Rfam assigns this 224-nucleotide RNA from Torulaspora globosa to the family "Small nucleolar RNA snR31". Lineage of the source: Eukaryota > Opisthokonta > Fungi > saccharomyceta > Torulaspora. For this family Rfam cites "Identification and functional analysis of a novel yeast small nucleolar RNA" (Dandekar and Tollervey, Nucleic Acids Res, 1993).
[Rfam]
RNA sequence: AAGAUUGAAUUGAUCCAUGUGUUCUCAUUGGCAUCAUCUAUCUGGUGGUUUCACCGAUAGGUAGAUUAGAUGCUUGAGAAGUUCAAUCUUCUUUUGAUCAAGUCACAUGGUAGAUUGAUUUAUAGGGAAGAUGUAUCUCCAGCUGUUGAAUAGAGGUUGAAGCCUUUCUCUUCCGCCUCGACUUUCAAAAUCUGAUACAGUUGGUCAUAAUUCUUGCCACACGA
Numbered sequence: 001a002a003g004a005u006u007g008a009a010u011u012g013a014u015c016c017a018u019g020u021g022u023u024c025u026c027a028u029u030g031g032c033a034u035c036a037u038c039u040a041u042c043u044g045g046u047g048g049u050u051u052c053a054c055c056g057a058u059a060g061g062u063a064g065a066u067u068a069g070a071u072g073c074u075u076g077a078g079a080a081g082u083u084c085a086a087u088c089u090u091c092u093u094u095u096g097a098u099c100a101a102g103u104c105a106c107a108u109g110g111u112a113g114a115u116u117g118a119u120u121u122a123u124a125g126g127g128a129a130g131a132u133g134u135a136u137c138u139c140c141a142g143c144u145g146u147u148g149a150a151u152a153g154a155g156g157u158u159g160a161a162g163c164c165u166u167u168c169u170c171u172u173c174c175g176c177c178u179c180g181a182c183u184u185u186c187a188a189a190a191u192c193u194g195a196u197a198c199a200g201u202u203g204g205u206c207a208u209a210a211u212u213c214u215u216g217c218c219a220c221a222c223g224a
Stems, first nucleotide, its partner, number of pairs: 015110007024081002028077004032072004036062004044055002082102002086098003125218002128215001130213002139204008153179004159173004